[Rfam]
RNA: TPP riboswitch aptamer (THI element)
Organism: Falsigemmobacter intermedius
RNA sequence: GUCUGUACCUCGGGGUGUCAGGCUGGUCCUGGCUGAGAUGCAGUUGCGAACCCGUUGAACCUGAACCGGCUCAUACCGGCGGAGGGAAGGUGCAUCGGGCCUGC
Numbered sequence: 001g002u003c004u005g006u007a008c009c010u011c012g013g014g015g016u017g018u019c020a021g022g023c024u025g026g027u028c029c030u031g032g033c034u035g036a037g038a039u040g041c042a043g044u045u046g047c048g049a050a051c052c053c054g055u056u057g058a059a060c061c062u063g064a065a066c067c068g069g070c071u072c073a074u075a076c077c078g079g080c081g082g083a084g085g086g087a088a089g090g091u092g093c094a095u096c097g098g099g100c101c102u103g104c
Base pairs, nucleotide, nucleotide: 006092007091008090009089010088011054012053013052014051016048017033018032019031020030021029040047041046060085061084062083066079067078068077069076